Background:
Shown here is an 84-nucleotide sequence from Bucco capensis, a member of the family "mir-1426 microRNA precursor family".

RNA sequence: CAGGGUUGAUCCUCUUUCCUUAACUCAUGCCGCUGUGCCUAUUUAUUUCACAAUAGUGUGAGUUGAGUACAGAGUGUCAGUCCA
Numbered sequence: 001c002a003g004g005g006u007u008g009a010u011c012c013u014c015u016u017u018c019c020u021u022a023a024c025u026c027a028u029g030c031c032g033c034u035g036u037g038c039c040u041a042u043u044u045a046u047u048u049c050a051c052a053a054u055a056g057u058g059u060g061a062g063u064u065g066a067g068u069a070c071a072g073a074g075u076g077u078c079a080g081u082c083c084a
Stems, first nucleotide, its partner, number of pairs: 004082007012074002019067010034052004
The source organism's lineage runs through Eukaryota, Metazoa, Teleostomi, Archosauria and Bucco.